[Rfam]
RNA sequence: AGCCCAUGAUGGUUUAAGAGUAGUGGGCAGAAGGGAUUUCUGAAAAAAAUCUUAGCUGAGGCU
Numbered sequence: 001a002g003c004c005c006a007u008g009a010u011g012g013u014u015u016a017a018g019a020g021u022a023g024u025g026g027g028c029a030g031a032a033g034g035g036a037u038u039u040c041u042g043a044a045a046a047a048a049a050u051c052u053u054a055g056c057u058g059a060g061g062c063u
Stems, first nucleotide, its partner, number of pairs: 001063004
Rfam assigns this 63-nucleotide RNA sequence from Erinaceus europaeus to the family "Small nucleolar RNA SNORD75". A reference for the family is Galardi et al. (2002), "Purified box C/D snoRNPs are able to reproduce site-specific 2'-O-methylation of target RNA in vitro", Mol Cell Biol. The base pairs follow the family's consensus structure, which was predicted with RNAalifold.